[Rfam]
RNA sequence: AUAUAAAACUCUGAAAUCGUUCGUAUAUUCCCGGGAAUACGGCUCGGGAGUUUCUACAGGGUGACCGUAAAUUGCCCUGCUACGAGGGAAAGUGCAUCUAGG
Numbered sequence: 001a002u003a004u005a006a007a008a009c010u011c012u013g014a015a016a017u018c019g020u021u022c023g024u025a026u027a028u029u030c031c032c033g034g035g036a037a038u039a040c041g042g043c044u045c046g047g048g049a050g051u052u053u054c055u056a057c058a059g060g061g062u063g064a065c066c067g068u069a070a071a072u073u074g075c076c077c078u079g080c081u082a083c084g085a086g087g088g089a090a091a092g093u094g095c096a097u098c099u100a101g102g
Stems, first nucleotide, its partner, number of pairs: 018088001020086006029049007058078007

This 102-nucleotide RNA sequence from Koleobacter methoxysyntrophicus belongs to the Rfam family "Purine riboswitch aptamer". The base pairs follow the family's consensus structure, which is taken from published work. Lineage of the source: Bacteria > Bacillati > Bacillota > Koleobacteraceae > Koleobacter. A reference for the family is Mandal et al. (2003), "Riboswitches Control Fundamental Biochemical Pathways in Bacillus subtilis and Other Bacteria", Cell.